A member of the RNA family "Haemophilus regulatory RNA responsive to iron" from Actinobacillus succinogenes, 89 nucleotides long. The family's RNA type in Rfam is small RNA. The base pairs follow the family's consensus structure, which was predicted with CMfinder. A reference for the family is Santana et al. (2014), "HrrF is the Fur-regulated small RNA in nontypeable Haemophilus influenzae", PLoS One.
[Rfam]
RNA sequence: GUAUCUGUUAAGGCAUAGAUGCUCCGACAGGUAGAGUAGAAAGUAAAUUCGUUAGGGUAAAAACUGAAGUUGUAUGACUUCAGUUUUUU
Numbered sequence: 001g002u003a004u005c006u007g008u009u010a011a012g013g014c015a016u017a018g019a020u021g022c023u024c025c026g027a028c029a030g031g032u033a034g035a036g037u038a039g040a041a042a043g044u045a046a047a048u049u050c051g052u053u054a055g056g057g058u059a060a061a062a063a064c065u066g067a068a069g070u071u072g073u074a075u076g077a078c079u080u081c082a083g084u085u086u087u088u089u
Stems, first nucleotide, its partner, number of pairs: 003032006012025002016021001047058004059088011